RNA sequence: ACCGCCCAGGGCAAACCCGGCGUGAGUCGGGGACGCGAAGCCAGGGAUCUUCGAGAAGGAAUGUUCGAAGACCGCCCGGUUGCCGGAG
Numbered sequence: 001a002c003c004g005c006c007c008a009g010g011g012c013a014a015a016c017c018c019g020g021c022g023u024g025a026g027u028c029g030g031g032g033a034c035g036c037g038a039a040g041c042c043a044g045g046g047a048u049c050u051u052c053g054a055g056a057a058g059g060a061a062u063g064u065u066c067g068a069a070g071a072c073c074g075c076c077c078g079g080u081u082g083c084c085g086g087a088g
Stems, first nucleotide, its partner, number of pairs: 003085002011036002016031006034074001039081004044077003048071006
A member of the RNA family "c-di-GMP-I-GGC riboswitch aptamer", 88 nucleotides long. A reference for the family is Weinberg et al. (2017), "Bioinformatic analysis of riboswitch structures uncovers variant classes with altered ligand specificity", Proc Natl Acad Sci U S A.